This 193-nucleotide sequence from Lachnospiraceae bacterium XBB2008 belongs to the Rfam family "6S / SsrS RNA".
The match comes from Rfam's covariance-model search (59 bits).
By type it is a non-coding RNA gene.
For this family Rfam cites "6S RNA regulates E. coli RNA polymerase activity" (Wassarman and Storz, Cell, 2000).
[Rfam]
RNA sequence: AGUAACCUGGAAUGUGCGAUAAUUCCUGUAUUUUUGAACCUACAAUACUUUAAACGGGAUUCCGAUACAUGGUCCGGAAGUCAGGCCUACGUCGCGAUAGCGAAAAGCAGUGGAAGGCUGAAAGGCUGUUGAGGUUGCCCACCUGGCUGUCAGCUAGGAGUCAAAGAACAGGAACCGGCAUCCCGGGGCCUUU
Number, nucleotide and partner (000 for none) at each position: 001a000002g191003u000004a000005a000006c187007c186008u185009g184010g183011a000012a181013u180014g179015u178016g000017c177018g176019a000020u000021a000022a000023u000024u000025c000026c000027u000028g000029u000030a000031u167032u166033u165034u000035u163036g162037a161038a000039c158040c157041u000042a000043c000044a000045a000046u000047a000048c000049u000050u000051u000052a000053a000054a000055c000056g140057g139058g138059a000060u000061u000062c134063c133064g000065a000066u000067a130068c000069a129070u128071g127072g126073u125074c124075c000076g000077g000078a000079a000080g000081u117082c116083a000084g000085g000086c113087c112088u000089a000090c000091g000092u000093c000094g000095c000096g000097a000098u000099a000100g000101c000102g000103a000104a000105a000106a000107g000108c000109a000110g000111u000112g087113g086114a000115a000116g082117g081118c000119u000120g000121a000122a000123a000124g074125g073126c072127u071128g070129u069130u067131g000132a000133g063134g062135u000136u000137g000138c058139c057140c056141a000142c000143c000144u000145g000146g000147c000148u000149g000150u000151c000152a000153g000154c000155u000156a000157g040158g039159a000160g000161u037162c036163a035164a000165a033166g032167a031168a000169c000170a000171g000172g000173a000174a000175c000176c018177g017178g015179c014180a013181u012182c000183c010184c009185g008186g007187g006188g000189c000190c000191u002192u000193u000